This 72-nucleotide sequence from Pan paniscus belongs to the Rfam family "mir-3689 microRNA precursor family". Lineage of the source: Eukaryota > Craniata > Euarchontoglires > Hominidae > Pan. The family's consensus secondary structure was predicted with RNAalifold. It scores 63 bits against the family's covariance model.
RNA sequence: GUGAGGUGUGUUCCUGUGCUCCCUGGGAGGUGCAAUCCCGUGCUCCCUAGGAGGUGUGAUCCUGUUCUCCCU
Numbered sequence: 001g002u003g004a005g006g007u008g009u010g011u012u013c014c015u016g017u018g019c020u021c022c023c024u025g026g027g028a029g030g031u032g033c034a035a036u037c038c039c040g041u042g043c044u045c046c047c048u049a050g051g052a053g054g055u056g057u058g059a060u061c062c063u064g065u066u067c068u069c070c071c072u
Base pairs, nucleotide, nucleotide: 001071003069004068005067015058016057017056018055020053022051023050024049025048026047027046029044031042032041033040